Shown here is a 134-nucleotide sequence from Populus trichocarpa, a member of the family "MIR480 microRNA precursor family". Rfam links the family to the GO terms miRNA-mediated post-transcriptional gene silencing and RISC complex. A reference for the family is Lu et al. (2005), "Novel and mechanical stress-responsive MicroRNAs in Populus trichocarpa that are absent from Arabidopsis", Plant Cell. Lineage of the source: Eukaryota > Embryophyta > Gunneridae > Saliceae > Populus.
Nucleotides: 134
Stems, first nucleotide, its partner, number of pairs: 004132001006130002008127002012124001014122002018119002027115001029113003
Number, partner (000 for none) and nucleotide at each position: 001000u002000a003000a004132u005000c006130u007129u008127u009126u010000u011000g012124g013000a014122g015121u016000a017000g018119a019118u020000c021000c022000u023000u024000a025000u026000u027115u028000a029113g030112u031111u032000a033000u034000g035000g036000u037000a038000a039000a040000c041000u042000c043000g044000c045000a046000c047000c048000u049000a050000a051000c052000u053000a054000c055000u056000c057000a058000g059000a060000a061000u062000c063000a064000c065000c066000c067000c068000u069000u070000a071000u072000c073000g074000c075000a076000a077000g078000c079000u080000u081000g082000a083000c084000u085000a086000u087000a088000u089000u090000a091000u092000u093000g094000a095000u096000a097000u098000u099000a100000a101000a102000a103000a104000a105000a106000u107000a108000a109000a110000g111031g112030a113029c114000a115027a116000c117000u118019a119018u120000u121015a122014c123000g124012u125000u126009a127008a128000c129007a130006a131000u132004a133000a134000c